[Rfam]
RNA: Small nucleolar RNA SNORA5
RNA sequence: UGCAGCUUUGUCAAAUUCAGUGUCUCCUUGUCAGUGGACCACACUGGCCAAAAUGGCUGCUACAGUAUUGACUAGCCCAUGGGCUCCACGUCCUUUGUAGUGGGGCGCUGGAGAUAGAUGGAGCUACCGACAAGC
Numbered sequence: 001u002g003c004a005g006c007u008u009u010g011u012c013a014a015a016u017u018c019a020g021u022g023u024c025u026c027c028u029u030g031u032c033a034g035u036g037g038a039c040c041a042c043a044c045u046g047g048c049c050a051a052a053a054u055g056g057c058u059g060c061u062a063c064a065g066u067a068u069u070g071a072c073u074a075g076c077c078c079a080u081g082g083g084c085u086c087c088a089c090g091u092c093c094u095u096u097g098u099a100g101u102g103g104g105g106c107g108c109u110g111g112a113g114a115u116a117g118a119u120g121g122a123g124c125u126a127c128c129g130a131c132a133a134g135c
Stems, first nucleotide, its partner, number of pairs: 002060004018046006025038003073126004084113005